[Rfam]
RNA sequence: AACCCCAAGGGAAAUGGUGUCUUCCCUGCACAAACCGCUUGAAAGCUGAUGACGCCUUCAAAUCG
Numbered sequence: 001a002a003c004c005c006c007a008a009g010g011g012a013a014a015u016g017g018u019g020u021c022u023u024c025c026c027u028g029c030a031c032a033a034a035c036c037g038c039u040u041g042a043a044a045g046c047u048g049a050u051g052a053c054g055c056c057u058u059c060a061a062a063u064c065g
Stems, first nucleotide, its partner, number of pairs: 010025004016056006037046003